A member of the RNA family "mir-87 microRNA precursor family" from Bursaphelenchus okinawaensis, 79 nucleotides long. Pairs were carried over by alignment from the consensus structure, which was predicted with RNAalifold. Lineage of the source: Eukaryota > Opisthokonta > Bilateria > Tylenchina > Bursaphelenchus. On this family, see Sempere et al., Dev Biol 2003: "Temporal regulation of microRNA expression in Drosophila melanogaster mediated by hormonal signals and broad-Complex gene activity".
[Rfam]
RNA sequence: AACUCGCCGCCUGGGACUUGGUCUCAACCUGGGACUGAUGAUUGGGCAUAGGUGAGCAAAGUUUCAGGUGUGCGAGAGU
Numbered sequence: 001a002a003c004u005c006g007c008c009g010c011c012u013g014g015g016a017c018u019u020g021g022u023c024u025c026a027a028c029c030u031g032g033g034a035c036u037g038a039u040g041a042u043u044g045g046g047c048a049u050a051g052g053u054g055a056g057c058a059a060a061g062u063u064u065c066a067g068g069u070g071u072g073c074g075a076g077a078g079u
Base pairs, nucleotide, nucleotide: 003076004075005074006073007072008070009069010068011067012066013065014064016062017061018060019059023056024055025054026053028052029051030050

Gene Ontology terms of the family: miRNA-mediated post-transcriptional gene silencing and RISC complex.